[Rfam]
RNA sequence: UGAGAUGACGAUGAGGAUAUACAGCUCCCUCUUCUGAUAAAAGCUGAAGAGAAUUGCUGGCAGAAUCGAACCUAAAAUCACUAGCCACCACUGAGUCA
Numbered sequence: 001u002g003a004g005a006u007g008a009c010g011a012u013g014a015g016g017a018u019a020u021a022c023a024g025c026u027c028c029c030u031c032u033u034c035u036g037a038u039a040a041a042a043g044c045u046g047a048a049g050a051g052a053a054u055u056g057c058u059g060g061c062a063g064a065a066u067c068g069a070a071c072c073u074a075a076a077a078u079c080a081c082u083a084g085c086c087a088c089c090a091c092u093g094a095g096u097c098a
Stems, first nucleotide, its partner, number of pairs: 006098004

About this RNA: The record is a 98-nucleotide RNA sequence from Arabis nemorensis, which matches "Small nucleolar RNA R30/Z108" in Rfam. Its family is annotated with nucleolus and RNA processing in the Gene Ontology. Rfam classes the family as a C/D-box small nucleolar RNA. The match comes from Rfam's covariance-model search (91 bits). snoR30 is a C/D box small nucleolar RNA which acts as a methylation guide for 18S ribosomal RNA in plants. The base pairs follow the family's consensus structure, which was predicted with PFOLD. Lineage of the source: Eukaryota > Pentapetalae > rosids > Arabideae > Arabis.